RNA sequence: CUAUAAGAGGCAUGAUGUAUUACCAUAGAGCUCUCAAGAUGUUUGGCGCCCUUGAUUCUCGCCUCGAGAUGGACAUCGUGG
Numbered sequence: 001c002u003a004u005a006a007g008a009g010g011c012a013u014g015a016u017g018u019a020u021u022a023c024c025a026u027a028g029a030g031c032u033c034u035c036a037a038g039a040u041g042u043u044u045g046g047c048g049c050c051c052u053u054g055a056u057u058c059u060c061g062c063c064u065c066g067a068g069a070u071g072g073a074c075a076u077c078g079u080g081g
Stems, first nucleotide, its partner, number of pairs: 001081004006076001
RNA: Small nucleolar RNA J33
Organism: Coptis chinensis